RNA sequence: CCGGUCAACUCUGGAGAGCGGUCCCGGCGCCACGCCGACGGCCCACCGAAGGGGCAGGCGGAUUUCCGCUAUCUCUCAGGUACCAAGGACAGAGGGGCAAUG
Numbered sequence: 001c002c003g004g005u006c007a008a009c010u011c012u013g014g015a016g017a018g019c020g021g022u023c024c025c026g027g028c029g030c031c032a033c034g035c036c037g038a039c040g041g042c043c044c045a046c047c048g049a050a051g052g053g054g055c056a057g058g059c060g061g062a063u064u065u066c067c068g069c070u071a072u073c074u075c076u077c078a079g080g081u082a083c084c085a086a087g088g089a090c091a092g093a094g095g096g097g098c099a100a101u102g
Base pairs, nucleotide, nucleotide: 006097009094010093011092012091013090020043021042022041023040045081046080047079048077049076052075053074054073058069059068
A member of the RNA family "Glycine riboswitch aptamer" from Massilia horti, 102 nucleotides long.
The match comes from Rfam's covariance-model search (51 bits).
NCBI's taxonomy places the organism under Bacteria, Pseudomonadati, Pseudomonadota, Oxalobacteraceae, Massilia.